[Rfam]
Rfam assigns this 120-nucleotide RNA from Aliivibrio fischeri to the family "Ribosomal S15 leader".
About the family: The E. coli Ribosomal S15 gene 5' UTR can form two alternative structures. One that is a series of three hairpins, The other includes a pseudoknot.

RNA sequence: CGUAGUGGCUGAAUCAGAGAUUGGCUACUACAAAUAUUAAACUACUCUUAUCAGGAGAGAAUUAUGUCUCUGAAUGCAGAAACUAAAGCAGCAAUCGUUGCUGAAUACGCACAAUCUGAA
Numbered sequence: 001c002g003u004a005g006u007g008g009c010u011g012a013a014u015c016a017g018a019g020a021u022u023g024g025c026u027a028c029u030a031c032a033a034a035u036a037u038u039a040a041a042c043u044a045c046u047c048u049u050a051u052c053a054g055g056a057g058a059g060a061a062u063u064a065u066g067u068c069u070c071u072g073a074a075u076g077c078a079g080a081a082a083c084u085a086a087a088g089c090a091g092c093a094a095u096c097g098u099u100g101c102u103g104a105a106u107a108c109g110c111a112c113a114a115u116c117u118g119a120a
Base pairs, nucleotide, nucleotide: 007026008025009024010023011022012021051073052072053071054070055069
Rfam's curators put it in the seed alignment.
It is annotated as a cis-regulatory leader.
Clan: Ribosomal Protein S15 Leader clan.
Its family is annotated with regulation of translation, ncRNA-mediated in the Gene Ontology.